[Rfam]
Rfam assigns this 82-nucleotide RNA sequence to the family "Bradyrhizobiaceae sRNA BjrC68". Rfam's curators put it in the seed alignment. Rfam classes the family as a small RNA.
RNA sequence: GAAGAGAUACGGUUAGGGCGGAUACCCGGCACCGCCCUUGCCGUCGAGGGGCCCUGGAGUGAUCCAGGGCCCCUCACUUUUU
Numbered sequence: 001g002a003a004g005a006g007a008u009a010c011g012g013u014u015a016g017g018g019c020g021g022a023u024a025c026c027c028g029g030c031a032c033c034g035c036c037c038u039u040g041c042c043g044u045c046g047a048g049g050g051g052c053c054c055u056g057g058a059g060u061g062a063u064c065c066a067g068g069g070c071c072c073c074u075c076a077c078u079u080u081u082u
Stems, first nucleotide, its partner, number of pairs: 010043004015038004048073008057064002